[Rfam]
RNA sequence: CCUUGUAAAUAUAAAAUCUUUUGUUUUGUUACUUGGUGCUUUAUUUUAGUCCUUGUAAAUCCAUUCAAAUUAAAAUUGGUCCUGAUAUAUAUUCAUUUUAGUUUUUAUUUUGAGGGAUUAAAAUCAAAUAUUAUACAUGUUACAAGGACCAAAUCCAAUAUAAAUCAAUUUUGCAAGGACUAAAAUAAAACAACAAAGAAUGAAAGCAAAACAUUAUAUAUUUGCAAGGA
Numbered sequence: 001c002c003u004u005g006u007a008a009a010u011a012u013a014a015a016a017u018c019u020u021u022u023g024u025u026u027u028g029u030u031a032c033u034u035g036g037u038g039c040u041u042u043a044u045u046u047u048a049g050u051c052c053u054u055g056u057a058a059a060u061c062c063a064u065u066c067a068a069a070u071u072a073a074a075a076u077u078g079g080u081c082c083u084g085a086u087a088u089a090u091a092u093u094c095a096u097u098u099u100a101g102u103u104u105u106u107a108u109u110u111u112g113a114g115g116g117a118u119u120a121a122a123a124u125c126a127a128a129u130a131u132u133a134u135a136c137a138u139g140u141u142a143c144a145a146g147g148a149c150c151a152a153a154u155c156c157a158a159u160a161u162a163a164a165u166c167a168a169u170u171u172u173g174c175a176a177g178g179a180c181u182a183a184a185a186u187a188a189a190a191c192a193a194c195a196a197a198g199a200a201u202g203a204a205a206g207c208a209a210a211a212c213a214u215u216a217u218a219u220a221u222u223u224g225c226a227a228g229g230a
Stems, first nucleotide, its partner, number of pairs: 006224008015215002019211002022208006030200001032198003036194001037192002040189009050179002053176006059169002064164002067161001069159003076152007086142002089140004107124005
This 230-nucleotide sequence from Medicago truncatula belongs to the Rfam family "MIR2630 microRNA precursor family". The family has 23 seed sequences and 296 matches in Rfam 15.1. The match comes from Rfam's covariance-model search (150 bits).